[Rfam]
Source information: Glycine riboswitch aptamer: a 100-nucleotide RNA from Duganella sp. CF517. Rfam describes the family as follows. This family represents the bacterial glycine riboswitch.
RNA sequence: ACCGCCGUAUCGGGAGAGACCGUUCCAGCACAGGCUGACGAACGGCGCCGAAGGAGCAACCGCCCCGGAAACUCUCAGGCAAAAGGACCGAUACAGCACU
Numbered sequence: 001a002c003c004g005c006c007g008u009a010u011c012g013g014g015a016g017a018g019a020c021c022g023u024u025c026c027a028g029c030a031c032a033g034g035c036u037g038a039c040g041a042a043c044g045g046c047g048c049c050g051a052a053g054g055a056g057c058a059a060c061c062g063c064c065c066c067g068g069a070a071a072c073u074c075u076c077a078g079g080c081a082a083a084a085g086g087a088c089c090g091a092u093a094c095a096g097c098a099c100u
Stems, first nucleotide, its partner, number of pairs: 007094007020045006047080003050076002054074003060068002